[Rfam]
RNA sequence: UGGCACCUACGGGGGCCUAUCACAUAGCAGGGAAACCCCCUGCACUUGCUAAACGGAAGACAGAAA
Numbered sequence: 001u002g003g004c005a006c007c008u009a010c011g012g013g014g015g016c017c018u019a020u021c022a023c024a025u026a027g028c029a030g031g032g033a034a035a036c037c038c039c040c041u042g043c044a045c046u047u048g049c050u051a052a053a054c055g056g057a058a059g060a061c062a063g064a065a066a
Stems, first nucleotide, its partner, number of pairs: 002017003006014003027043006

Rfam assigns this 66-nucleotide sequence from Ruegeria sp. ANG-S4 to the family "L2-Alphaproteobacteria ribosomal protein leader".
Pairs were carried over by alignment from the consensus structure, which is taken from published work.
The literature on the family includes a 2020 paper in BMC Microbiol by Eckert and Weinberg, "Discovery of 20 novel ribosomal leader candidates in bacteria and archaea".